[Rfam]
RNA sequence: GUGGAAGGAAGCUUACUGAAGAGGUUACCAACUGGGUGUUAAUCACUCUGUCUCUUACUUUGGGGAAGGUCUGAGACAAGAGCCAAUCACUGCCCUUACAGGGUGUCACCUGAUGCAGGUGAGUGAGUACCCAGAGAAUGUGGGCUUGAGUGUAGUAUCUUCAUAAGAGAAAUCGGUUGGUGCAGUUAAACAGCACAGCUGAUGGAUAUGAUCUCACUAGCUUGGAAAUGCUCAUGGCUGGCAGCAGAGUUCAAUGUGUGAGCUGGAGUUCAACUCCAGAACCCAAUUCAGACUACUCUCCUUCCAC
Numbered sequence: 001g002u003g004g005a006a007g008g009a010a011g012c013u014u015a016c017u018g019a020a021g022a023g024g025u026u027a028c029c030a031a032c033u034g035g036g037u038g039u040u041a042a043u044c045a046c047u048c049u050g051u052c053u054c055u056u057a058c059u060u061u062g063g064g065g066a067a068g069g070u071c072u073g074a075g076a077c078a079a080g081a082g083c084c085a086a087u088c089a090c091u092g093c094c095c096u097u098a099c100a101g102g103g104u105g106u107c108a109c110c111u112g113a114u115g116c117a118g119g120u121g122a123g124u125g126a127g128u129a130c131c132c133a134g135a136g137a138a139u140g141u142g143g144g145c146u147u148g149a150g151u152g153u154a155g156u157a158u159c160u161u162c163a164u165a166a167g168a169g170a171a172a173u174c175g176g177u178u179g180g181u182g183c184a185g186u187u188a189a190a191c192a193g194c195a196c197a198g199c200u201g202a203u204g205g206a207u208a209u210g211a212u213c214u215c216a217c218u219a220g221c222u223u224g225g226a227a228a229u230g231c232u233c234a235u236g237g238c239u240g241g242c243a244g245c246a247g248a249g250u251u252c253a254a255u256g257u258g259u260g261a262g263c264u265g266g267a268g269u270u271c272a273a274c275u276c277c278a279g280a281a282c283c284c285a286a287u288u289c290a291g292a293c294u295a296c297u298c299u300c301c302u303u304c305c306a307c
Base pairs, nucleotide, nucleotide: 001307002306003305004304007301008300009299012262013261014260015259016258021061022060023059024058034048035047036046037045038044071291072290073289074288075287081239082238083237084236091105092104093103094102095101106122107121108120109119110118111117123235124234125233126232127231128230129229144221145220146219263279264278265277266276267275268274269273
The family of this 307-nucleotide RNA sequence from Electrophorus electricus is "Nuclear RNase P". Rfam's curators write: Ribonuclease P (RNase P) is a ubiquitous endoribonuclease, found in archaea, bacteria and eukarya as well as chloroplasts and mitochondria. Its best characterised activity is the generation of mature 5'-ends of tRNAs by cleaving the 5'-leader elements of precursor-tRNAs. Cellular RNase Ps are ribonucleoproteins. RNA from bacterial RNase Ps retains its catalytic activity in the absence of the protein subunit, i.e. it is a ribozyme. The organism belongs to Electrophorus, within Eukaryota. It is annotated as a ribozyme.